[Rfam]
Shown here is a 96-nucleotide RNA from Turnera subulata, a member of the family "mir-395 microRNA precursor family". Lineage of the source: Eukaryota > Tracheophyta > eudicotyledons > Malpighiales > Turnera. Rfam describes the family as follows. mir-395 was identified in both Arabidopsis thaliana and Oryza sativa computationally and was later experimentally verified. mir-395 is thought to target mRNAs coding for ATP sulphurylases. The base pairs follow the family's consensus structure, which was predicted with PFOLD. A search with the family's covariance model found it, with a score of 70 bits.

RNA sequence: GUGCCCCCUAGAGUUCCCCUGAGCACUUCAUUGGGACUCAUCAAGAAUCAGGUUUCUUAGUCCCACUGAAGUGUUUGGGGGAACUCCCGGUGUCAU
Numbered sequence: 001g002u003g004c005c006c007c008c009u010a011g012a013g014u015u016c017c018c019c020u021g022a023g024c025a026c027u028u029c030a031u032u033g034g035g036a037c038u039c040a041u042c043a044a045g046a047a048u049c050a051g052g053u054u055u056c057u058u059a060g061u062c063c064c065a066c067u068g069a070a071g072u073g074u075u076u077g078g079g080g081g082a083a084c085u086c087c088c089g090g091u092g093u094c095a096u
Stems, first nucleotide, its partner, number of pairs: 005092001007090002011086010022076002024073007032065004